Rfam assigns this 80-nucleotide RNA sequence from Geotrypetes seraphini to the family "Mammalian CPEB3 ribozyme".
[Rfam]
Nucleotides: 080
Stems, first nucleotide, its partner, number of pairs: 013048004019044002023080007030042003052069005
Number, partner (000 for none) and nucleotide at each position: 001000u002000c003000a004000g005000u006000c007000c008000a009000g010000c011000u012000a013048c014047a015046g016045g017000g018000a019044c020043u021000g022000u023080a024079g025078c026077a027076g028075a029074a030042g031041u032040g033000u034000u035000c036000a037000c038000a039000u040032u041031a042030u043020g044019g045016c046015u047014u048013g049000u050000g051000u052069c053068a054067g055066a056065u057000u058000g059000u060000u061000a062000u063000g064000c065056a066055u067054c068053u069052g070000u071000g072000a073000a074029u075028u076027c077026u078025g079024c080023u
The mammalian CPEB3 ribozyme is a self cleaving RNA located in the second intron of the CPEB3 gene which belongs to a family of genes regulating messenger RNA polyadenylation. This ribozyme is highly conserved and found only in mammals. The CPEB3 ribozyme is structurally and biochemically related to the human hepatitis delta virus (HDV) ribozyme and the HDV ribozyme is proposed to have arisen from the human transcriptome. The family's consensus secondary structure is taken from published work. A reference for the family is Salehi-Ashtiani et al. (2006), "A genomewide search for ribozymes reveals an HDV-like sequence in the human CPEB3 gene", Science.